Background: A member of the RNA family "Small nucleolar RNA SNORD18" from Owenia fusiformis, 73 nucleotides long. Pairs were carried over by alignment from the consensus structure, which was predicted with PFOLD. On this family, see Prislei et al., Nucleic Acids Res 1993: "Two different snoRNAs are encoded in introns of amphibian and human L1 ribosomal protein genes". Lineage of the source: Eukaryota > Opisthokonta > Eumetazoa > Oweniida > Owenia.

[Rfam]
RNA sequence: UAAAUAUGAUGAUUUUAACCAUCUCCAUUGGUCCGUGUUUCUGAUUUUUAUGAUGUGCGAGCUUUCUGAUUUA
Numbered sequence: 001u002a003a004a005u006a007u008g009a010u011g012a013u014u015u016u017a018a019c020c021a022u023c024u025c026c027a028u029u030g031g032u033c034c035g036u037g038u039u040u041c042u043g044a045u046u047u048u049u050a051u052g053a054u055g056u057g058c059g060a061g062c063u064u065u066c067u068g069a070u071u072u073a
Stems, first nucleotide, its partner, number of pairs: 001073004